[Rfam]
A member of the RNA family "Nuclear RNase P" from Clytia hemisphaerica, 262 nucleotides long. Rfam describes the family as follows. Ribonuclease P (RNase P) is a ubiquitous endoribonuclease, found in archaea, bacteria and eukarya as well as chloroplasts and mitochondria. Its best characterised activity is the generation of mature 5'-ends of tRNAs by cleaving the 5'-leader elements of precursor-tRNAs. Rfam 15.1 lists 3,848 matches to the family in 1,862 species. Rfam classes the family as a ribozyme. The family's consensus secondary structure is taken from published work. Its Rfam clan is "RNaseP clan". The organism belongs to Clytia, within Eukaryota.
RNA sequence: UGUGAGCGAACGUACACCUAAGGAGCCUAGGCUGCUGGGAAGGUCUGAGACAAAAGUCACUCCCACCUUCUAACUGGAAGGCUACAGUAAUCUGUAGAUGGAUUUGUAAGGAAGGUUACAUAAAUGUUCGACGAAGUACAUUGAGUACUGAGAACGUAUCCUGCCUUCAGAAUGGUCCAUGACUGGCUACUUGAGUGCGAUUGGUGUAGCAACAUUCCAUUGGUGCAAUGUUGUAACUCAAUUCAGACUACUCUCGUUCACA
Number, nucleotide and partner (000 for none) at each position: 001u262002g261003u260004g259005a000006g000007c256008g255009a254010a000011c000012g000013u000014a000015c000016a000017c203018c000019u000020a000021a036022g035023g000024a033025g032026c000027c000028u000029a000030g000031g000032c025033u024034g000035c022036u021037g000038g000039g000040a000041a000042g000043g000044u000045c246046u245047g244048a243049g242050a000051c000052a000053a000054a000055a184056g183057u182058c181059a000060c000061u000062c000063c000064c000065a000066c081067c080068u078069u077070c076071u000072a000073a000074c000075u000076g070077g069078a068079a000080g067081g066082c097083u096084a095085c094086a093087g092088u000089a000090a000091u000092c087093u086094g085095u084096a083097g082098a180099u179100g178101g177102a176103u175104u174105u000106g000107u000108a000109a000110g000111g000112a000113a000114g165115g164116u163117u000118a000119c000120a000121u000122a000123a000124a000125u000126g000127u000128u000129c000130g000131a000132c000133g000134a000135a000136g000137u000138a000139c000140a000141u000142u000143g000144a000145g000146u000147a000148c000149u000150g000151a000152g000153a000154a000155c000156g000157u000158a000159u000160c000161c000162u000163g116164c115165c114166u000167u000168c000169a000170g000171a000172a000173u000174g104175g103176u102177c101178c100179a099180u098181g058182a057183c056184u055185g000186g000187c000188u000189a000190c000191u000192u000193g000194a000195g000196u000197g000198c000199g000200a000201u000202u000203g017204g000205u000206g000207u000208a000209g234210c233211a232212a231213c230214a229215u228216u000217c000218c000219a000220u000221u000222g000223g000224u000225g000226c000227a000228a215229u214230g213231u212232u211233g210234u209235a000236a000237c000238u000239c000240a000241a000242u049243u048244c047245a046246g045247a000248c000249u000250a000251c000252u000253c000254u009255c008256g007257u000258u000259c004260a003261c002262a001